[Rfam]
RNA sequence: CGUCCACAAACGCUGAAUUCCCACCAGGAAACGGGGGACCCAGAAUCCACCAGGGGCCAAGCGCAGUGGCUUCACUGCCCGGGCGACACUCCUGCCGUCCGCGCCCGUCAGCUAACCCCGUAAGCGUCGCAGGGGGAGACC
Dot-bracket structure: ..........((((...(((.......)))((((((....(...........)(((......((((........))))..((((............))))...))).........)))))).))))...............
RNA: c-di-AMP riboswitch aptamer (ydaO/yuaA leader)